[Rfam]
Rfam assigns this 133-nucleotide RNA sequence from Brassica carinata to the family "Small nucleolar RNA snoR74". Gene Ontology terms of the family: nucleolus and RNA processing. Rfam classes the family as an H/ACA-box small nucleolar RNA. For this family Rfam cites "Experimental RNomics: identification of 140 candidates for small non-messenger RNAs in the plant Arabidopsis thaliana" (Marker et al., Curr Biol, 2002).
RNA sequence: CAAAAAGCAGGGCUCUGUUUUAUUACGUAACAGAGUUCACGUAAAUGUCAGGAAAAUCGAAUUGGUCAUCGUGUUUGGGUGAACCUGCGUUUCUUCUUAAUAACUGAUGGGUUCAGUUCAUGAUGGUACAUUU
Numbered sequence: 001c002a003a004a005a006a007g008c009a010g011g012g013c014u015c016u017g018u019u020u021u022a023u024u025a026c027g028u029a030a031c032a033g034a035g036u037u038c039a040c041g042u043a044a045a046u047g048u049c050a051g052g053a054a055a056a057u058c059g060a061a062u063u064g065g066u067c068a069u070c071g072u073g074u075u076u077g078g079g080u081g082a083a084c085c086u087g088c089g090u091u092u093c094u095u096c097u098u099a100a101u102a103a104c105u106g107a108u109g110g111g112u113u114c115a116g117u118u119c120a121u122g123a124u125g126g127u128a129c130a131u132u133u
Stems, first nucleotide, its partner, number of pairs: 005048001007046001011037002014034004065127009080115007